[Rfam]
RNA sequence: GAUUAGAUAGUAUGGUAGAAAGAUUCAUAUGAAUCUUUCUACCAUACUAUCUAAUCUAUUAGUGUUUUUUUUUCGGGUAGGAAGUUGUACUA
Numbered sequence: 001g002a003u004u005a006g007a008u009a010g011u012a013u014g015g016u017a018g019a020a021a022g023a024u025u026c027a028u029a030u031g032a033a034u035c036u037u038u039c040u041a042c043c044a045u046a047c048u049a050u051c052u053a054a055u056c057u058a059u060u061a062g063u064g065u066u067u068u069u070u071u072u073u074c075g076g077g078u079a080g081g082a083a084g085u086u087g088u089a090c091u092a
Base pairs, nucleotide, nucleotide: 006051007050008049009048010047011046012045013044014043015042016041017040018039019038020037021036022035023034024033025032026031